[Rfam]
Shown here is a 118-nucleotide sequence from Candidatus Tokpelaia hoelldobleri, a member of the family "Rhizobiales sRNA Atu_C8".
RNA sequence: AGUUGAGACAACAUAUUCUUGUGGUGAUGGCGCGCAUGGGGCAAGUGGUGUAACCACUGGCAUCAGCACCUCAUGCGUGAAAACAGGCUCCUUCAGGGGCCUUUUUUAUUGCCUUUGG
Numbered sequence: 001a002g003u004u005g006a007g008a009c010a011a012c013a014u015a016u017u018c019u020u021g022u023g024g025u026g027a028u029g030g031c032g033c034g035c036a037u038g039g040g041g042c043a044a045g046u047g048g049u050g051u052a053a054c055c056a057c058u059g060g061c062a063u064c065a066g067c068a069c070c071u072c073a074u075g076c077g078u079g080a081a082a083a084c085a086g087g088c089u090c091c092u093u094c095a096g097g098g099g100c101c102u103u104u105u106u107u108a109u110u111g112c113c114u115u116u117g118g
Base pairs, nucleotide, nucleotide: 027114029112031079032078033077034076035075036074037073038072039071040070043058045057046056047055048054060067061066083103085102086101087100088099089098090097091096
On this family, see Wilms et al., RNA Biol 2012: "Deep sequencing uncovers numerous small RNAs on all four replicons of the plant pathogen Agrobacterium tumefaciens".
Rfam classes the family as a small RNA.